[Rfam]
Nucleotides: 045
Stems, first nucleotide, its partner, number of pairs: 006021006
Number, partner (000 for none) and nucleotide at each position: 001000c002000c003000a004000a005000a006021g007020g008019c009018u010017c011016u012000u013000u014000u015000a016011a017010g018009a019008g020007c021006c022000a023000c024000c025000c026000a027000a028000a029000u030000c031000u032000u033000g034000u035000a036000a037000a038000a039000a040000g041000c042000u043000u044000u045000c

This 45-nucleotide RNA sequence from Merluccius polli belongs to the Rfam family "Histone 3' UTR stem-loop". The family has 50 seed sequences and 44,596 matches in Rfam 15.1. Lineage of the source: Eukaryota > Vertebrata > Neoteleostei > Acanthomorphata > Merluccius. A search with the family's covariance model found it, with a score of 41 bits.